[Rfam]
This 105-nucleotide RNA sequence from Flammeovirgaceae bacterium 311 belongs to the Rfam family "Bacteroidales small SRP". The literature on the family includes a 2020 paper in Nat Commun by Ryan et al., "A high-resolution transcriptome map identifies small RNA regulation of metabolism in the gut microbe Bacteroides thetaiotaomicron". The organism belongs to Flammeovirgaceae, within Bacteria. Gene Ontology terms of the family: SRP-dependent cotranslational protein targeting to membrane, signal sequence recognition and signal recognition particle, plasma membrane targeting.

RNA sequence: UUUGCACUGGCGAAUCGGCACGGCCAGCUCCCGUCGAACUCCCCCAGGACCGGAAGGUAGCAAGGGUAGACGGUCGUAGCGGCGCGAUGUUCGAUUCGCCUUUUU
Numbered sequence: 001u002u003u004g005c006a007c008u009g010g011c012g013a014a015u016c017g018g019c020a021c022g023g024c025c026a027g028c029u030c031c032c033g034u035c036g037a038a039c040u041c042c043c044c045c046a047g048g049a050c051c052g053g054a055a056g057g058u059a060g061c062a063a064g065g066g067u068a069g070a071c072g073g074u075c076g077u078a079g080c081g082g083c084g085c086g087a088u089g090u091u092c093g094a095u096u097c098g099c100c101u102u103u104u105u
Stems, first nucleotide, its partner, number of pairs: 009100007018090003021086002023083002